[Rfam]
RNA sequence: GACACCUUUAAUUCAGUCCUGUGAGGCUGGCAAGGUUGUGCGGAAAAGAUAAAUAUAGUAUAAGUAAACACUUCAUCGUUAUUUGUGUUGAUGUUAUCUUAUACUUUCCCCUGCACCUUGCCAAAUUUUUACGGGCAAGGUGUUUUUUAU
Numbered sequence: 001g002a003c004a005c006c007u008u009u010a011a012u013u014c015a016g017u018c019c020u021g022u023g024a025g026g027c028u029g030g031c032a033a034g035g036u037u038g039u040g041c042g043g044a045a046a047a048g049a050u051a052a053a054u055a056u057a058g059u060a061u062a063a064g065u066a067a068a069c070a071c072u073u074c075a076u077c078g079u080u081a082u083u084u085g086u087g088u089u090g091a092u093g094u095u096a097u098c099u100u101a102u103a104c105u106u107u108c109c110c111c112u113g114c115a116c117c118u119u120g121c122c123a124a125a126u127u128u129u130u131a132c133g134g135g136c137a138a139g140g141u142g143u144u145u146u147u148u149a150u
Base pairs, nucleotide, nucleotide: 004036005035006034007033008032013030014029015028016027017026018025052083053082054081055080058077062073063072064071065070113143114142115141116140117139118138119137120136121135122134
Notes
Shown here is a 150-nucleotide RNA sequence from Oceanobacillus iheyensis, a member of the family "PyrR binding site". The source organism's lineage runs through Bacteria, Bacillota, Bacilli, Caryophanales and Oceanobacillus iheyensis. Rfam's curators write: This family represents the PyrR binding site and terminator structure. This RNA structure is found upstream of a variety of genes involved in pyrimidine biosynthesis and transport. It is annotated as a cis-regulatory element. The family has 41 seed sequences and 1,498 matches in Rfam 15.1.